[Rfam]
RNA sequence: CGGCGGGCCACGCCCUCCCAACGGGGCGCUGCUCAUCUGCAAGGAUGGGAGAC
Numbered sequence: 001c002g003g004c005g006g007g008c009c010a011c012g013c014c015c016u017c018c019c020a021a022c023g024g025g026g027c028g029c030u031g032c033u034c035a036u037c038u039g040c041a042a043g044g045a046u047g048g049g050a051g052a053c
Stems, first nucleotide, its partner, number of pairs: 011028006033048006
RNA: serC leader
Organism: Caulobacter mirabilis